[Rfam]
RNA sequence: UACGCGCCCGGGCGAUGUCUUCAUCGGCCGUCCCCUUUUGAUAAAGUGGUCGGUGGGACUUUCGUCCGUUUGCAAA
Numbered sequence: 001u002a003c004g005c006g007c008c009c010g011g012g013c014g015a016u017g018u019c020u021u022c023a024u025c026g027g028c029c030g031u032c033c034c035c036u037u038u039u040g041a042u043a044a045a046g047u048g049g050u051c052g053g054u055g056g057g058a059c060u061u062u063c064g065u066c067c068g069u070u071u072g073c074a075a076a
Base pairs, nucleotide, nucleotide: 004073005072006071009068010067011066012065013064014063015062017059018058019057020056022055023054025052026051027050028049029048
RNA: mir-278 microRNA precursor family
Organism: Cotesia typhae